[Rfam]
RNA: MIR2655 microRNA precursor family
Organism: Trifolium subterraneum
RNA sequence: CCCUUAUCUUUUAAAAGUUUCAAUUUAGUCCCUUAUCUUUAUUUUAGGUUUUAAGUUGGUCCCUUCCGUCAAUUUUUUCACUGCCACCUUUAAAUUUGGAUACGUGUCAUAUGUCCAAGUGUGCCAUGUGUCCAAAUGAGUUUGCCACGUGUCCAAAUUUAACGGAAAUAGUUAAAAAAUUGAUGGAAGGGACCAACUUGAAACUUAAAAUAAAGAUAAGGGACCAACUUGAAACUUUUAAAAGAUAAGGGA
Numbered sequence: 001c002c003c004u005u006a007u008c009u010u011u012u013a014a015a016a017g018u019u020u021c022a023a024u025u026u027a028g029u030c031c032c033u034u035a036u037c038u039u040u041a042u043u044u045u046a047g048g049u050u051u052u053a054a055g056u057u058g059g060u061c062c063c064u065u066c067c068g069u070c071a072a073u074u075u076u077u078u079c080a081c082u083g084c085c086a087c088c089u090u091u092a093a094a095u096u097u098g099g100a101u102a103c104g105u106g107u108c109a110u111a112u113g114u115c116c117a118a119g120u121g122u123g124c125c126a127u128g129u130g131u132c133c134a135a136a137u138g139a140g141u142u143u144g145c146c147a148c149g150u151g152u153c154c155a156a157a158u159u160u161a162a163c164g165g166a167a168a169u170a171g172u173u174a175a176a177a178a179a180u181u182g183a184u185g186g187a188a189g190g191g192a193c194c195a196a197c198u199u200g201a202a203a204c205u206u207a208a209a210a211u212a213a214a215g216a217u218a219a220g221g222g223a224c225c226a227a228c229u230u231g232a233a234a235c236u237u238u239u240a241a242a243a244g245a246u247a248a249g250g251g252a
Base pairs, nucleotide, nucleotide: 002250003249004248005247006246007245008244023229025227028224029223031221032220033219034218035217036216037215038214039213040212041211042210043209045207046206047205